Annotation: Shown here is a 125-nucleotide sequence from Geococcyx californianus, a member of the family "Small Cajal body specific RNA 3". Pairs were carried over by alignment from the consensus structure, which was predicted with RNAalifold. A search with the family's covariance model found it, with a score of 102 bits. By type it is a small Cajal body RNA. The organism belongs to Geococcyx, within Eukaryota. Rfam links the family to the GO terms nucleolus, RNA processing and Cajal body.

RNA sequence: AUUGGGACCAGUCGUGGGCAAGAGAAAUAUGUUUUGUCCACCGUUGCAGUCUUCCUAGAGCAAAGUGGAGGUCUCUGUCUGCUUUAGGAGAGCUGGCUAAACCAGAUCGUUCCCCUCCAUACACA
Number, nucleotide and partner (000 for none) at each position: 001a000002u000003u000004g055005g054006g053007a000008c000009c049010a000011g047012u046013c000014g041015u040016g039017g038018g037019c036020a000021a000022g000023a000024g033025a032026a000027a000028u000029a000030u000031g000032u025033u024034u000035u000036g019037u018038c017039c016040a015041c014042c000043g000044u000045u000046g012047c011048a000049g009050u000051c000052u000053u006054c005055c004056u000057a000058g000059a000060g000061c000062a000063a000064a000065g000066u000067g118068g117069a116070g115071g114072u000073c000074u000075c109076u000077g107078u106079c105080u000081g103082c000083u101084u100085u099086a098087g097088g000089a000090g000091a000092g000093c000094u000095g000096g000097c087098u086099a085100a084101a083102c000103c081104a000105g079106a078107u077108c000109g075110u000111u000112c000113c000114c071115c070116u069117c068118c067119a000120u000121a000122c000123a000124c000125a000